[Rfam]
Nucleotides: 045
Stems, first nucleotide, its partner, number of pairs: 001020008034045004
Number, partner (000 for none) and nucleotide at each position: 001020c002019g003018g004017c005016g006015g007014g008013g009000a010000c011000g012000a013008c014007u015006c016005c017004g018003c019002c020001g021000c022000c023000c024000g025000a026000a027000c028000a029000u030000c031000c032000a033000c034045g035044g036043g037042g038000a039000c040000g041000a042037c043036c044035c045034c
The family of this 45-nucleotide RNA from Geobacter sulfurreducens is "Guanidine-II riboswitch aptamer (mini-ykkC)". The family has 72 seed sequences and 1,589 matches in Rfam 15.1. Simpler in structure and has fewer highly conserved nucleotide positions than the ykkC-yxkD leader. Despite this each of its two stem-loop structures directly bind free guanidine. Therefore, mini-ykkC RNA motif represents a distinct class of guanidine-sensing RNAs. Its crystal structure was also determined. Rfam's curators put it in the seed alignment.